[Rfam]
RNA sequence: UGGCCUCCUGCUUCAACAGUGCUUGAAUGGAGCCCG
Numbered sequence: 001u002g003g004c005c006u007c008c009u010g011c012u013u014c015a016a017c018a019g020u021g022c023u024u025g026a027a028u029g030g031a032g033c034c035c036g
Stems, first nucleotide, its partner, number of pairs: 001036003005032004010028001012027005017021001

This 36-nucleotide sequence from Octodon degus belongs to the Rfam family "Iron response element I". The family's RNA type in Rfam is cis-regulatory element. The family has 62 seed sequences and 6,829 matches in Rfam 15.1. Lineage of the source: Eukaryota > Deuterostomia > Theria > Eutheria > Octodon. Pairs were carried over by alignment from the consensus structure, which is taken from published work. Its family is annotated with response to iron ion in the Gene Ontology. It scores 40 bits against the family's covariance model. A reference for the family is Nichol and Winzerling (2002), "Structured RNA upstream of insect cap distal iron responsive elements enhances iron regulatory protein-mediated control of translation", Insect Biochem Mol Biol.